[Rfam]
A member of the RNA family "mir-9198 microRNA precursor family" from Myotis lucifugus, 79 nucleotides long.
Gene Ontology terms of the family: miRNA-mediated post-transcriptional gene silencing and RISC complex.
A search with the family's covariance model found it, with a score of 94 bits.
Lineage of the source: Eukaryota > Amniota > Eutheria > Laurasiatheria > Myotis.
RNA sequence: GCUGCCGCUCGCACCUGCUGCUGGCGCCCGGUGCCGGUCCCGAUCGCUAGGCGCUGUCAGCGGGUGCAAGCGGCAGCUG
Numbered sequence: 001g002c003u004g005c006c007g008c009u010c011g012c013a014c015c016u017g018c019u020g021c022u023g024g025c026g027c028c029c030g031g032u033g034c035c036g037g038u039c040c041c042g043a044u045c046g047c048u049a050g051g052c053g054c055u056g057u058c059a060g061c062g063g064g065u066g067c068a069a070g071c072g073g074c075a076g077c078u079g
Stems, first nucleotide, its partner, number of pairs: 004074006011067010022056007